RNA sequence: GUGCUGGCCUAGUCGAGGGGAUACUUCGUCACACAUUGGUUGAACUUUAGUUUCUGGAUAACUGAACAUGUGGGUUCGAAUCCCACAGCGUCCCCUGAUGCCAUCCAGCAUUUUU
Numbered sequence: 001g002u003g004c005u006g007g008c009c010u011a012g013u014c015g016a017g018g019g020g021a022u023a024c025u026u027c028g029u030c031a032c033a034c035a036u037u038g039g040u041u042g043a044a045c046u047u048u049a050g051u052u053u054c055u056g057g058a059u060a061a062c063u064g065a066a067c068a069u070g071u072g073g074g075u076u077c078g079a080a081u082c083c084c085a086c087a088g089c090g091u092c093c094c095c096u097g098a099u100g101c102c103a104u105c106c107a108g109c110a111u112u113u114u115u
Stems, first nucleotide, its partner, number of pairs: 002110006012099004017095004025080004